Shown here is an 81-nucleotide RNA sequence from Geotrypetes seraphini, a member of the family "mir-26 microRNA precursor family". Taxonomically the source falls in Geotrypetes (Eukaryota, Sarcopterygii, Tetrapoda, Dermophiidae). The literature on the family includes a 2001 paper in Science by Lagos-Quintana et al., "Identification of novel genes coding for small expressed RNAs". The family has 82 seed sequences and 2,251 matches in Rfam 15.1.
[Rfam]
RNA sequence: CUGUGACCUCGUUCAAGUAAUCCAGGAUAGACUGUGUACAUUGUAAUUGGCCUAUUCUCGAUUACUUGCAUUAUGUGGCAG
Numbered sequence: 001c002u003g004u005g006a007c008c009u010c011g012u013u014c015a016a017g018u019a020a021u022c023c024a025g026g027a028u029a030g031a032c033u034g035u036g037u038a039c040a041u042u043g044u045a046a047u048u049g050g051c052c053u054a055u056u057c058u059c060g061a062u063u064a065c066u067u068g069c070a071u072u073a074u075g076u077g078g079c080a081g
Stems, first nucleotide, its partner, number of pairs: 002080003007075001009073001011071002014068009024058007032050002